[Rfam]
Shown here is a 103-nucleotide RNA sequence from a Geobacteraceae bacterium, a member of the family "TPP riboswitch aptamer (THI element)". From the family's description: Vitamin B(1) in its active form thiamin pyrophosphate (TPP) is an essential coenzyme that is synthesised by coupling of pyrimidine and thiazole moieties in bacteria. It scores 75 bits against the family's covariance model. The family's consensus secondary structure is taken from published work.
RNA sequence: UCACUCUGCUGGGGGAGCCGUAAAAAUGGCUGAGAUGAGGGAAACCUUGAACCCCUGACCUGAUCCGGGUAAUGCCGGCGUAGGGAAGCGGACAGAACAUACU
Dot-bracket structure: .....(((((((((..(((((....)))))......((((....))))...))))...((((..((((......))))..))))..)))))............